[Rfam]
RNA sequence: GUUUUAUGAUGAUUCCCAUGCGUGUCAACUGAUCCCAGAAUCCUCUGAUGCUCUGAUCUCCCUGAUGGCGUUUUGCCAGCAGGUGUGGGCUGGGCGUCAGUGCUCUGGGACCAUGAUCAUUACUUAACAAUGGCUGAAAAC
Numbered sequence: 001g002u003u004u005u006a007u008g009a010u011g012a013u014u015c016c017c018a019u020g021c022g023u024g025u026c027a028a029c030u031g032a033u034c035c036c037a038g039a040a041u042c043c044u045c046u047g048a049u050g051c052u053c054u055g056a057u058c059u060c061c062c063u064g065a066u067g068g069c070g071u072u073u074u075g076c077c078a079g080c081a082g083g084u085g086u087g088g089g090c091u092g093g094g095c096g097u098c099a100g101u102g103c104u105c106u107g108g109g110a111c112c113a114u115g116a117u118c119a120u121u122a123c124u125u126a127a128c129a130a131u132g133g134c135u136g137a138a139a140a141c
Base pairs, nucleotide, nucleotide: 001141002140003139004138045100046099047098048097049096050095051094052093053092